[Rfam]
RNA sequence: CUUUUUUACGCAUAUGUAAUCACCUCACUAUAUUUUACUGUUCCUGUUGAUUUUCUGACAGGUACAGUAAAACGUAUAGUAUGGUUUGUCAGUUCCUAUUAUGCGUAUAAAAGCAAAAAGGUACUGCCUAGCGGUAAAUAAAAAAACCGUUAUUAACAGUACCAUUUUUGCGUGUCAAAAAAUAUCAUUACUUCAAUGGCGGUUUGAAAAGCCGCCUUUUCUUUUUCCACCAAUA
Numbered sequence: 001c002u003u004u005u006u007u008a009c010g011c012a013u014a015u016g017u018a019a020u021c022a023c024c025u026c027a028c029u030a031u032a033u034u035u036u037a038c039u040g041u042u043c044c045u046g047u048u049g050a051u052u053u054u055c056u057g058a059c060a061g062g063u064a065c066a067g068u069a070a071a072a073c074g075u076a077u078a079g080u081a082u083g084g085u086u087u088g089u090c091a092g093u094u095c096c097u098a099u100u101a102u103g104c105g106u107a108u109a110a111a112a113g114c115a116a117a118a119a120g121g122u123a124c125u126g127c128c129u130a131g132c133g134g135u136a137a138a139u140a141a142a143a144a145a146a147c148c149g150u151u152a153u154u155a156a157c158a159g160u161a162c163c164a165u166u167u168u169u170g171c172g173u174g175u176c177a178a179a180a181a182a183u184a185u186c187a188u189u190a191c192u193u194c195a196a197u198g199g200c201g202g203u204u205u206g207a208a209a210a211g212c213c214g215c216c217u218u219u220u221c222u223u224u225u226u227c228c229a230c231c232a233a234u235a
Stems, first nucleotide, its partner, number of pairs: 001113004007107002011103001013101002029076003033072004038067004043062007079090001122161005131150004196218001198216001200214006
Dot-bracket structure: ((((..((..(.((..............(((.((((.((((.(((((((......))))))).)))).)))).)))..(..........).........)).)..))..))))........(((((....((((............))))......)))))..................................(.(.((((((...)))))).).).................